[Rfam]
RNA sequence: AGGCCCGAAGAGAGAGGCAGGGUCUAAUACGCAGCCUCCAUGGAAGCUGUUGAUCAGCCGUUGCCUCUCUCUUUCUCCCAG
Numbered sequence: 001a002g003g004c005c006c007g008a009a010g011a012g013a014g015a016g017g018c019a020g021g022g023u024c025u026a027a028u029a030c031g032c033a034g035c036c037u038c039c040a041u042g043g044a045a046g047c048u049g050u051u052g053a054u055c056a057g058c059c060g061u062u063g064c065c066u067c068u069c070u071c072u073u074u075c076u077c078c079c080a081g
Stems, first nucleotide, its partner, number of pairs: 008073013022059001024057002027054002032049004
RNA: mir-574 microRNA precursor family